[Rfam]
RNA: Bacterial large signal recognition particle RNA
Organism: Thermoflavimicrobium dichotomicum
RNA sequence: CCGCGCUAGACGGGGAGCUAGCCGUGCCCUGUAGCCCGCAAUCGGCUUAGCGGGGUCGAAUUCCUGCCUGAGGUCCUUUUUGUGUAAGGUCUGGUUUGCCUUGAAGGUGUUGAUGAUCGGGUCCUACGCAACGAGAGCUUUCGAACCGUGUCAGGUCCUGGCGGAAGCAGCACUAAGGAAGAUUUCUCGUGUGCCGUAGGGGUGCCUGGUUUGAGCUGGAUAGGCAAAGUCCGCUUGGGCAAAUUGGAUCGGAGGCAGGUGCGCGG
Numbered sequence: 001c002c003g004c005g006c007u008a009g010a011c012g013g014g015g016a017g018c019u020a021g022c023c024g025u026g027c028c029c030u031g032u033a034g035c036c037c038g039c040a041a042u043c044g045g046c047u048u049a050g051c052g053g054g055g056u057c058g059a060a061u062u063c064c065u066g067c068c069u070g071a072g073g074u075c076c077u078u079u080u081u082g083u084g085u086a087a088g089g090u091c092u093g094g095u096u097u098g099c100c101u102u103g104a105a106g107g108u109g110u111u112g113a114u115g116a117u118c119g120g121g122u123c124c125u126a127c128g129c130a131a132c133g134a135g136a137g138c139u140u141u142c143g144a145a146c147c148g149u150g151u152c153a154g155g156u157c158c159u160g161g162c163g164g165a166a167g168c169a170g171c172a173c174u175a176a177g178g179a180a181g182a183u184u185u186c187u188c189g190u191g192u193g194c195c196g197u198a199g200g201g202g203u204g205c206c207u208g209g210u211u212u213g214a215g216c217u218g219g220a221u222a223g224g225c226a227a228a229g230u231c232c233g234c235u236u237g238g239g240c241a242a243a244u245u246g247g248a249u250c251g252g253a254g255g256c257a258g259g260u261g262c263g264c265g266g
Stems, first nucleotide, its partner, number of pairs: 001266006009057003012030004017025002035054005063259007072250005079243005085237004092233002095228006103221001106217003115211008123200006129191002132189005138181005148173004156165003
Dot-bracket structure: ((((((..(((((((.((.....)).))))....(((((..........)))))))).....(((((((..(((((..(((((.((((...((.((((((..(..(((......((((((((((((((((.(((((.(((((.....((((....(((....)))....))))...)))))...)))))))...))))))...))))))))...)))...).))))))...)))))).)))))..)))))..))))))).))))))